[Rfam]
RNA sequence: UAGAAUAAUGUAGGUAAGGGAAGUCGGCAAAUUAGAUCCGUAACUUCGGGAAAAGGAUUGGCUCUAAGGACUGGGCCGGUCGGGCUGCAGUGUGAAGUGAGCUCGGUUUGAUCCAUGCAGUGCAACGCUCGGCAACGGGUGGCGCUCGGCUAGCGUUCGAACUGUCUCGUGGACCGCUGCAGCUGCGUGCCGCGUCCUCGCGGGCGUUGGUGCUUCGGCCGGCGCUAAACAGUCGACUUAGAACUGGCACGGACUCGGGGAAUCCGACUGUCUAAUUAAAACAGAGGAGACAGAUGGCCCUUGCGGGCGUUGACUGUCUCUGAUUUCUGCCCAGUGCUCUGAAUGUAAAAGUGAAGAAAUUCAACCAAGCGCGGGUAAACGGCGGGAGUAACUAUGACUCUCUUAAGGUAGCCAAAUGCCUCGUCAUCUAAUUAGUGACGCGCAUGAAUGGAUUAACGAGAUUCCCACUGUCCCUAUCUACUAUCUAGCGAAACCACAGCCAAGGGAACGGGCUUGGCGAA
Numbered sequence: 001u002a003g004a005a006u007a008a009u010g011u012a013g014g015u016a017a018g019g020g021a022a023g024u025c026g027g028c029a030a031a032u033u034a035g036a037u038c039c040g041u042a043a044c045u046u047c048g049g050g051a052a053a054a055g056g057a058u059u060g061g062c063u064c065u066a067a068g069g070a071c072u073g074g075g076c077c078g079g080u081c082g083g084g085c086u087g088c089a090g091u092g093u094g095a096a097g098u099g100a101g102c103u104c105g106g107u108u109u110g111a112u113c114c115a116u117g118c119a120g121u122g123c124a125a126c127g128c129u130c131g132g133c134a135a136c137g138g139g140u141g142g143c144g145c146u147c148g149g150c151u152a153g154c155g156u157u158c159g160a161a162c163u164g165u166c167u168c169g170u171g172g173a174c175c176g177c178u179g180c181a182g183c184u185g186c187g188u189g190c191c192g193c194g195u196c197c198u199c200g201c202g203g204g205c206g207u208u209g210g211u212g213c214u215u216c217g218g219c220c221g222g223c224g225c226u227a228a229a230c231a232g233u234c235g236a237c238u239u240a241g242a243a244c245u246g247g248c249a250c251g252g253a254c255u256c257g258g259g260g261a262a263u264c265c266g267a268c269u270g271u272c273u274a275a276u277u278a279a280a281a282c283a284g285a286g287g288a289g290a291c292a293g294a295u296g297g298c299c300c301u302u303g304c305g306g307g308c309g310u311u312g313a314c315u316g317u318c319u320c321u322g323a324u325u326u327c328u329g330c331c332c333a334g335u336g337c338u339c340u341g342a343a344u345g346u347a348a349a350a351g352u353g354a355a356g357a358a359a360u361u362c363a364a365c366c367a368a369g370c371g372c373g374g375g376u377a378a379a380c381g382g383c384g385g386g387a388g389u390a391a392c393u394a395u396g397a398c399u400c401u402c403u404u405a406a407g408g409u410a411g412c413c414a415a416a417u418g419c420c421u422c423g424u425c426a427u428c429u430a431a432u433u434a435g436u437g438a439c440g441c442g443c444a445u446g447a448a449u450g451g452a453u454u455a456a457c458g459a460g461a462u463u464c465c466c467a468c469u470g471u472c473c474c475u476a477u478c479u480a481c482u483a484u485c486u487a488g489c490g491a492a493a494c495c496a497c498a499g500c501c502a503a504g505g506g507a508a509c510g511g512g513c514u515u516g517g518c519g520a521a
Stems, first nucleotide, its partner, number of pairs: 001487004010481007018473003035059005044049001060245002063242006069234005075223009084183003088179004097170004104164008113155001114153001117150002120147001122145002126141006246250001258466007265458002269283003286321008297308004325452003329383003334380002336376004341372001344371003352363004384402006403407001423439005500517005

Rfam assigns this 521-nucleotide part of an RNA from Toxocara canis to the family "Eukaryotic large subunit ribosomal RNA".
Its Rfam clan is "LSU clan".
The family's consensus secondary structure is taken from published work.
It scores 3047 bits against the family's covariance model.
The organism belongs to Toxocara, within Eukaryota.